[Rfam]
RNA: Purine riboswitch aptamer
Organism: Geomicrobium sp. JCM 19039
RNA sequence: AAUUCUACAAUAUCUACCACUCGUAUAACCGCAAGGAUUGGCUUGCAAGUUUCUACCAGGAAACCGUAAUUUCCUGACUACGAGUGAACAUUAUCGUGCU
Numbered sequence: 001a002a003u004u005c006u007a008c009a010a011u012a013u014c015u016a017c018c019a020c021u022c023g024u025a026u027a028a029c030c031g032c033a034a035g036g037a038u039u040g041g042c043u044u045g046c047a048a049g050u051u052u053c054u055a056c057c058a059g060g061a062a063a064c065c066g067u068a069a070u071u072u073c074c075u076g077a078c079u080a081c082g083a084g085u086g087a088a089c090a091u092u093a094u095c096g097u098g099c100u
Base pairs, nucleotide, nucleotide: 018086019085020084021083022082023081024080025079031046032045033044034043035042057076058075059074060073061072062071063070